Shown here is an 83-nucleotide RNA sequence from Megalops atlanticus, a member of the family "Small nucleolar RNA SNORD74".

RNA sequence: CCAUGUUGAAUGUGAUGAAACAUGUGUUGGUAGGGACAUCUGAGUAUAUCUGAUGAAUUGCCAACCUUUCUGACAUCGCAUGG
Dot-bracket structure: (((((.........................................................................)))))
Numbered sequence: 001c002c003a004u005g006u007u008g009a010a011u012g013u014g015a016u017g018a019a020a021c022a023u024g025u026g027u028u029g030g031u032a033g034g035g036a037c038a039u040c041u042g043a044g045u046a047u048a049u050c051u052g053a054u055g056a057a058u059u060g061c062c063a064a065c066c067u068u069u070c071u072g073a074c075a076u077c078g079c080a081u082g083g
Stems, first nucleotide, its partner, number of pairs: 001083005
The base pairs follow the family's consensus structure, which was predicted with PFOLD.
Its family is annotated with RNA processing and nucleolus in the Gene Ontology.
The organism belongs to Megalops, within Eukaryota.